RNA sequence: AUGUGCCAGUCGUACACUCCGGUUCUGCGCGCGCCGUCCGUGCCCACCUGACAGCUGCUCGCUACGUUUUGUUAGCC
Numbered sequence: 001a002u003g004u005g006c007c008a009g010u011c012g013u014a015c016a017c018u019c020c021g022g023u024u025c026u027g028c029g030c031g032c033g034c035c036g037u038c039c040g041u042g043c044c045c046a047c048c049u050g051a052c053a054g055c056u057g058c059u060c061g062c063u064a065c066g067u068u069u070u071g072u073u074a075g076c077c
Base pairs, nucleotide, nucleotide: 002016003015004014005013006012020036021035022034023033025031048075049074050073051072052071053070054069